[Rfam]
RNA sequence: UCUACUCAAAUUUUCCGAGCUUAAACUUCUAAAGUCAAUGUUGACCAUGAAGUCUAGCCGAUGGGUAUAAGGAGAAAUUCUUGUGCCUCCCGUAUUUGGAAAGGAAAGUUUUAACCUGUUGG
Numbered sequence: 001u002c003u004a005c006u007c008a009a010a011u012u013u014u015c016c017g018a019g020c021u022u023a024a025a026c027u028u029c030u031a032a033a034g035u036c037a038a039u040g041u042u043g044a045c046c047a048u049g050a051a052g053u054c055u056a057g058c059c060g061a062u063g064g065g066u067a068u069a070a071g072g073a074g075a076a077a078u079u080c081u082u083g084u085g086c087c088u089c090c091c092g093u094a095u096u097u098g099g100a101a102a103g104g105a106a107a108g109u110u111u112u113a114a115c116c117u118g119u120u121g122g
Base pairs, nucleotide, nucleotide: 006113011108012107013106014105015104016103019058020057021056025053026052027051028050029049034045035044036043063088064087065086066085067084068083069082070081071080072079073078089099090098